mir-283 microRNA precursor family: a 91-nucleotide RNA sequence from Aphidius gifuensis. For this family Rfam cites "Identification of microRNAs expressed in two mosquito vectors, Aedes albopictus and Culex quinquefasciatus" (Skalsky et al., BMC Genomics, 2010). It scores 56 bits against the family's covariance model. NCBI's taxonomy places the organism under Eukaryota, Protostomia, Pancrustacea, Dicondylia, Aphidius.
[Rfam]
RNA sequence: AAGUCCGGUGAAAAGUCUAAUAUCAGCUGGUAAUUCUGGGAUAUAAAAAUGAAAUUACUCAGGAUUCUGGCUGGUAUGCGGCUAAGCACUG
Numbered sequence: 001a002a003g004u005c006c007g008g009u010g011a012a013a014a015g016u017c018u019a020a021u022a023u024c025a026g027c028u029g030g031u032a033a034u035u036c037u038g039g040g041a042u043a044u045a046a047a048a049a050u051g052a053a054a055u056u057a058c059u060c061a062g063g064a065u066u067c068u069g070g071c072u073g074g075u076a077u078g079c080g081g082c083u084a085a086g087c088a089c090u091g
Base pairs, nucleotide, nucleotide: 014083015082016081017080020077021076022075023074024073025072026071027070028069029068030067033065034064035063036062037061038060039059040058